Rfam assigns this 260-nucleotide RNA sequence from Pelodiscus sinensis to the family "Small Cajal body specific RNA 6".
Pairs were carried over by alignment from the consensus structure, which is taken from published work.
Rfam's curators write: U88 is small Cajal body specific RNA (scaRNA). scaRNAs are a novel class of small nuclear RNAs which localise to the Cajal bodies. U88 is found associated with both fibrillarin and Gar1p and co-localises with coilin in Cajal bodies.
The match comes from Rfam's covariance-model search (137 bits).
The family's RNA type in Rfam is small Cajal body RNA.
The source organism's lineage runs through Eukaryota, Vertebrata, Testudines, Cryptodira and Pelodiscus.
RNA sequence: GGUCUGUGAUGAAUAGUAAAAGGUCUGACAGAUUACACUUCCAUCACCCUUUCAACUCCCAGCAGUUUCUCACCCAUCAUACUCCAGUAAUGUUGUGACUGGGGGAGAGUUUGCUGACAAAUUGUGAUGCAUUCCGUUUGUGUUCCCUAGAGCACCACAGGCACAAUUCUGAUCUGCAUCCAACAGAACCAGUCAAAAGGAGUAUGGGGUUUUGGAGGUGCAUAUCUGGGUACAUGAUCUCAGACUUCCUUUCUGAGACC
Numbered sequence: 001g002g003u004c005u006g007u008g009a010u011g012a013a014u015a016g017u018a019a020a021a022g023g024u025c026u027g028a029c030a031g032a033u034u035a036c037a038c039u040u041c042c043a044u045c046a047c048c049c050u051u052u053c054a055a056c057u058c059c060c061a062g063c064a065g066u067u068u069c070u071c072a073c074c075c076a077u078c079a080u081a082c083u084c085c086a087g088u089a090a091u092g093u094u095g096u097g098a099c100u101g102g103g104g105g106a107g108a109g110u111u112u113g114c115u116g117a118c119a120a121a122u123u124g125u126g127a128u129g130c131a132u133u134c135c136g137u138u139u140g141u142g143u144u145c146c147c148u149a150g151a152g153c154a155c156c157a158c159a160g161g162c163a164c165a166a167u168u169c170u171g172a173u174c175u176g177c178a179u180c181c182a183a184c185a186g187a188a189c190c191a192g193u194c195a196a197a198a199g200g201a202g203u204a205u206g207g208g209g210u211u212u213u214g215g216a217g218g219u220g221c222a223u224a225u226c227u228g229g230g231u232a233c234a235u236g237a238u239c240u241c242a243g244a245c246u247u248c249c250u251u252u253c254u255g256a257g258a259c260c
Base pairs, nucleotide, nucleotide: 001260002259003258004257030240031239032238033237034236038218039217040216041215042214043213056202057201058200059199060116061115062114063113064112065111073102074101077098078097079096080095081094082092124181126180127179128178129177130176131175141165142164143163145161146160